[Rfam]
RNA: Iron response element I
Organism: Myotis brandtii
RNA sequence: CUGUCUCUUGCUUCAAUCGUGUUUGGACAGACCAG
Number, nucleotide and partner (000 for none) at each position: 001c035002u034003g033004u000005c000006u031007c030008u029009u000010g028011c000012u027013u026014c025015a024016a023017u021018c000019g000020u000021g017022u000023u016024u015025g014026g013027a012028c010029a008030g007031a006032c000033c003034a002035g001